[Rfam]
RNA sequence: GGCCGCCGCCCUUCUCGGGCGUUUCCUCCCUGAUACCACUUUCGGGCCGCCGCUCUCGCGCGCGGCCCGUUUUUUAUGUGCGA
Numbered sequence: 001g002g003c004c005g006c007c008g009c010c011c012u013u014c015u016c017g018g019g020c021g022u023u024u025c026c027u028c029c030c031u032g033a034u035a036c037c038a039c040u041u042u043c044g045g046g047c048c049g050c051c052g053c054u055c056u057c058g059c060g061c062g063c064g065g066c067c068c069g070u071u072u073u074u075u076a077u078g079u080g081c082g083a
Base pairs, nucleotide, nucleotide: 008020009019010018011017044068045067046066047065048064049063050062051060052059
RNA: Makes More Granules Regulator RNA (mmgR)
Organism: Siculibacillus lacustris